[Rfam]
RNA: L17 ribosomal protein downstream element
RNA sequence: AGAGUGUUAUGAUGUUGGAGUCUAAGACUCCGAGUCUAGCUCGUCGCAUCUCCUUAGUCGUAAGACUAGGGA
Numbered sequence: 001a002g003a004g005u006g007u008u009a010u011g012a013u014g015u016u017g018g019a020g021u022c023u024a025a026g027a028c029u030c031c032g033a034g035u036c037u038a039g040c041u042c043g044u045c046g047c048a049u050c051u052c053c054u055u056a057g058u059c060g061u062a063a064g065a066c067u068a069g070g071g072a
Base pairs, nucleotide, nucleotide: 002042003041004040005039011036012035013034017031018030019029020028021027022026051072052071053070054069055068056067057066058065059064